[Rfam]
Description
This 303-nucleotide RNA sequence from Methanothrix soehngenii belongs to the Rfam family "Archaeal RNase P". About the family: Ribonuclease P (RNase P) is a ubiquitous endoribonuclease, found in archaea, bacteria and eukarya as well as chloroplasts and mitochondria. On this family, see Frank and Pace, Annu Rev Biochem 1998: "Ribonuclease P: unity and diversity in a tRNA processing ribozyme". It is annotated as a ribozyme. The family is grouped with related families in Rfam's "RNaseP clan". It scores 219 bits against the family's covariance model.
RNA sequence: GAGAGAGGAAGGACGGCUGCCGCUGGCCAGCUCCGGCCGGUGUGGAAAGUCCCUCCACCACUGGACACACAGACAUCCCAAAGGAUGUGGGGCGAGAGCUCCGGCUCUGGCACAGAAACGAUACCGCGCAGCGUUAAAGCUAUGAUGCCGAAAGGCUGAGGUCGCGCUGAAUGCGGAUGAAACGGCGAAACCCUGUGGGUGCAAGCCAAAAUAGAGCUGCUAACAUGGACGUCCAGCCAAGCUCGGGUAUGGCGCUAAGCUGAAUGCCGUCAUAGAACAGAAGGGGGCUUACUCUCCUCACUC
Numbered sequence: 001g002a003g004a005g006a007g008g009a010a011g012g013a014c015g016g017c018u019g020c021c022g023c024u025g026g027c028c029a030g031c032u033c034c035g036g037c038c039g040g041u042g043u044g045g046a047a048a049g050u051c052c053c054u055c056c057a058c059c060a061c062u063g064g065a066c067a068c069a070c071a072g073a074c075a076u077c078c079c080a081a082a083g084g085a086u087g088u089g090g091g092g093c094g095a096g097a098g099c100u101c102c103g104g105c106u107c108u109g110g111c112a113c114a115g116a117a118a119c120g121a122u123a124c125c126g127c128g129c130a131g132c133g134u135u136a137a138a139g140c141u142a143u144g145a146u147g148c149c150g151a152a153a154g155g156c157u158g159a160g161g162u163c164g165c166g167c168u169g170a171a172u173g174c175g176g177a178u179g180a181a182a183c184g185g186c187g188a189a190a191c192c193c194u195g196u197g198g199g200u201g202c203a204a205g206c207c208a209a210a211a212u213a214g215a216g217c218u219g220c221u222a223a224c225a226u227g228g229a230c231g232u233c234c235a236g237c238c239a240a241g242c243u244c245g246g247g248u249a250u251g252g253c254g255c256u257a258a259g260c261u262g263a264a265u266g267c268c269g270u271c272a273u274a275g276a277a278c279a280g281a282a283g284g285g286g287g288c289u290u291a292c293u294c295u296c297c298u299c300a301c302u303c
Stems, first nucleotide, its partner, number of pairs: 001303003005299005010293002012271006021042008047290003051287005056201004062231002066227001068197005073088005089102005103192002108188001110186002124176003129169006147156002205253004214244005